[Rfam]
RNA sequence: GGCUGGUCUGAAGUAGUAAAUUAUCUCACUUGAUUGUUCACAGUUUCUUACAGGUUGAACUCCUUGUUCUACUACUUUCCACCUUCUCACUGCUGCACUUGACUUGUCAAAA
Numbered sequence: 001g002g003c004u005g006g007u008c009u010g011a012a013g014u015a016g017u018a019a020a021u022u023a024u025c026u027c028a029c030u031u032g033a034u035u036g037u038u039c040a041c042a043g044u045u046u047c048u049u050a051c052a053g054g055u056u057g058a059a060c061u062c063c064u065u066g067u068u069c070u071a072c073u074a075c076u077u078u079c080c081a082c083c084u085u086c087u088c089a090c091u092g093c094u095g096c097a098c099u100u101g102a103c104u105u106g107u108c109a110a111a112a
Base pairs, nucleotide, nucleotide: 001108002107003106005104006103007102008101010100011099013096014095015091016090017089019087038074042070043069

Overview: The family of this 112-nucleotide RNA sequence from Microcebus murinus is "Y RNA". Rfam's curators write: Y RNAs are components of the Ro ribonucleoprotein particle (Ro RNP), in association with Ro60 and La proteins. The Y RNAs and Ro60 and La proteins are well conserved, but the function of the Ro RNP is not known. Rfam 15.1 lists 26,986 matches to the family in 650 species. NCBI's taxonomy places the organism under Eukaryota, Opisthokonta, Boreoeutheria, Cheirogaleidae, Microcebus.